RNA sequence: ACGAAAGAUAGAGGUGCGGCUUUAAAAAGUAUGUGAUACGAGACUGCCAAGGUCGUUUGAGUGCUCACAGAAAGGUAAAGCUGCCGAAGGCGGACGGCGACGGCGGUUGUCUGACCUGGUUGUUCAGUCGAAUAGGCUGGCGACUGUCAUCAGUAUGAUGGAGAGCUAUCGUUUCU
Numbered sequence: 001a002c003g004a005a006a007g008a009u010a011g012a013g014g015u016g017c018g019g020c021u022u023u024a025a026a027a028a029g030u031a032u033g034u035g036a037u038a039c040g041a042g043a044c045u046g047c048c049a050a051g052g053u054c055g056u057u058u059g060a061g062u063g064c065u066c067a068c069a070g071a072a073a074g075g076u077a078a079a080g081c082u083g084c085c086g087a088a089g090g091c092g093g094a095c096g097g098c099g100a101c102g103g104c105g106g107u108u109g110u111c112u113g114a115c116c117u118g119g120u121u122g123u124u125c126a127g128u129c130g131a132a133u134a135g136g137c138u139g140g141c142g143a144c145u146g147u148c149a150u151c152a153g154u155a156u157g158a159u160g161g162a163g164a165g166c167u168a169u170c171g172u173u174u175c176u
Base pairs, nucleotide, nucleotide: 007170008169009168010167011166016084017083018082019081020080021079022078023077024076032069033068034067035066036065037063038062039061088117089116090115091113092112093111094110095109096108097107098106118145119144120143121142122141123140124139126138127137128136129135147161148160149159150158151157152156
Dot-bracket structure: ......(((((....(((((((((.......((((((((.....................))).)))))......)))))))))...(((((((((((.......)))))))).)))(((((((.((((.....))))))))))).((((((...))))))....)))))......
Lysine riboswitch aptamer: a 176-nucleotide RNA from Zongyangia hominis.
Riboswitches are metabolite binding domains within certain messenger RNAs that serve as precision sensors for their corresponding targets.
For this family Rfam cites "The L box regulon: Lysine sensing by leader RNAs of bacterial lysine biosynthesis genes" (Grundy et al., Proc Natl Acad Sci U S A, 2003).
Lineage of the source: Bacteria > Bacillati > Bacillota > Oscillospiraceae > Zongyangia.
A search with the family's covariance model found it, with a score of 93 bits.
The base pairs follow the family's consensus structure, which is taken from published work.